c-di-GMP-I riboswitch aptamer: an 89-nucleotide RNA sequence from Firmicutes bacterium CAG:176. GEMM was predicted in a large-scale screen for bacterial structured RNA regulatory elements. The source organism's lineage runs through Bacteria, Bacillati and Bacillota.
[Rfam]
RNA sequence: AUGUUCUGUUGGCAAAUCGGCUGAAAGGCCGAGACGCAAAGCUACGGUGUCUAAACGGCAUUUGACCGCAUGAUCGACCGGCUGCAAGU
Numbered sequence: 001a002u003g004u005u006c007u008g009u010u011g012g013c014a015a016a017u018c019g020g021c022u023g024a025a026a027g028g029c030c031g032a033g034a035c036g037c038a039a040a041g042c043u044a045c046g047g048u049g050u051c052u053a054a055a056c057g058g059c060a061u062u063u064g065a066c067c068g069c070a071u072g073a074u075c076g077a078c079c080g081g082c083u084g085c086a087a088g089u
Base pairs, nucleotide, nucleotide: 012037013036017032018031019030020029021028022027040083041082042081043080046079047078048077049074050073051072056068057067058066